[Rfam]
Background:
Rfam assigns this 82-nucleotide RNA sequence from Anguilla anguilla to the family "mir-26 microRNA precursor family".
RNA sequence: CCCGAGCCUGUUUCAAGUAAUCCAGGAUAGGCUUGUUUUUAGCGGGGAAAGCCUAUUCGGGAUGACUUGGUUCAGGACCGCG
Numbered sequence: 001c002c003c004g005a006g007c008c009u010g011u012u013u014c015a016a017g018u019a020a021u022c023c024a025g026g027a028u029a030g031g032c033u034u035g036u037u038u039u040u041a042g043c044g045g046g047g048a049a050a051g052c053c054u055a056u057u058c059g060g061g062a063u064g065a066c067u068u069g070g071u072u073c074a075g076g077a078c079c080g081c082g
Base pairs, nucleotide, nucleotide: 003080004079007076008075009074010073014069015068016067017066018065020063021062022061025058026057027056028055029054030053031052032051033050